[Rfam]
RNA sequence: AUCUCAUGAAGAGUGGUUGAGGGACUGGCCCUACGAAACCACGGCAACCGGCUGGGACGCGAUUUCCAGUGCAGGUGCCAAGUCCAGCUCGAGCACCAUUAGCUCGGGGAAAAAUGAGAA
Numbered sequence: 001a002u003c004u005c006a007u008g009a010a011g012a013g014u015g016g017u018u019g020a021g022g023g024a025c026u027g028g029c030c031c032u033a034c035g036a037a038a039c040c041a042c043g044g045c046a047a048c049c050g051g052c053u054g055g056g057a058c059g060c061g062a063u064u065u066c067c068a069g070u071g072c073a074g075g076u077g078c079c080a081a082g083u084c085c086a087g088c089u090c091g092a093g094c095a096c097c098a099u100u101a102g103c104u105c106g107g108g109g110a111a112a113a114a115u116g117a118g119a120a
Base pairs, nucleotide, nucleotide: 002119003118004117005116006115007114013042014041015040016039017038021031022030023029025087026086027085028084043079044078045077046076048075049074051070052069053068054067055066056065083112088109089108090106091105092104093103

This 120-nucleotide RNA from Pedosphaera parvula belongs to the Rfam family "SAM riboswitch aptamer (S box leader)".
From the family's description: The SAM riboswitch is found upstream of a number of genes which code for proteins involved in methionine or cysteine biosynthesis in Gram-positive bacteria.
The source organism's lineage runs through Bacteria, Verrucomicrobiota, Pedosphaerales, Pedosphaera and Pedosphaera parvula.